Record summary: Stem loopII regulatory element in POLB: an 86-nucleotide RNA. The family's consensus secondary structure is taken from published work. By type it is a cis-regulatory element.
RNA sequence: AACCCAAUAGGAGUCUUAAUUUAUUUCUUAACCUUUGCUAUGUAAGGGUCUUUGGUGUUUUUAAAUGAUUGUUUCUUCUUCAUGCU
Numbered sequence: 001a002a003c004c005c006a007a008u009a010g011g012a013g014u015c016u017u018a019a020u021u022u023a024u025u026u027c028u029u030a031a032c033c034u035u036u037g038c039u040a041u042g043u044a045a046g047g048g049u050c051u052u053u054g055g056u057g058u059u060u061u062u063a064a065a066u067g068a069u070u071g072u073u074u075c076u077u078c079u080u081c082a083u084g085c086u
Base pairs, nucleotide, nucleotide: 009079010078011077012076016064017063018062019061025055026054031049032048033047034046035045036044037043038042
It is one of the family's seed sequences.